RNA sequence: GUGAGGACUGGGGAGGUGGAGGGUAGCAUCAUUAGAGCCAGAGCUCUGUCUCAGCUCCCUCUCCCCCCACCUCUUCUCUCCUCAG
Numbered sequence: 001g002u003g004a005g006g007a008c009u010g011g012g013g014a015g016g017u018g019g020a021g022g023g024u025a026g027c028a029u030c031a032u033u034a035g036a037g038c039c040a041g042a043g044c045u046c047u048g049u050c051u052c053a054g055c056u057c058c059c060u061c062u063c064c065c066c067c068c069a070c071c072u073c074u075u076c077u078c079u080c081c082u083c084a085g
Stems, first nucleotide, its partner, number of pairs: 002084006011075009020060004025056003033048003037044002
The family of this 85-nucleotide RNA sequence from Mus musculus is "mir-1224 microRNA precursor family". The source organism's lineage runs through Eukaryota, Gnathostomata, Teleostomi, Muroidea and Mus. Its family is annotated with RISC complex and miRNA-mediated post-transcriptional gene silencing in the Gene Ontology.